[Rfam]
A member of the RNA family "PyrG leader" from Bacillus sp. BT1B_CT2, 81 nucleotides long.
Nucleotides: 081
Base pairs, nucleotide, nucleotide: 043070044069045068046067047066048065049064050063051062052061053060054059
Number, partner (000 for none) and nucleotide at each position: 001000g002000g003000g004000c005000u006000c007000u008000u009000c010000a011000a012000a013000a014000c015000g016000a017000a018000g019000a020000g021000a022000u023000u024000c025000g026000a027000g028000u029000g030000a031000u032000a033000c034000g035000g036000a037000c038000u039000a040000u041000c042000a043070g044069c045068u046067c047066c048065c049064u050063u051062u052061c053060a054059a055000g056000a057000a058000a059054u060053u061052g062051a063050a064049a065048g066047g067046g068045a069044g070043c071000u072000u073000u074000c075000u076000u077000g078000u079000u080000u081000u

For this family Rfam cites "Regulation of pyrG expression in Bacillus subtilis: CTP-regulated antitermination and reiterative transcription with pyrG templates in vitro" (Jensen-MacAllister et al., Mol Microbiol, 2007). The base pairs follow the family's consensus structure, which is taken from published work. The source organism's lineage runs through Bacteria, Bacillati, Bacillota, Caryophanales and Bacillus. Its family is annotated with regulation of gene expression in the Gene Ontology.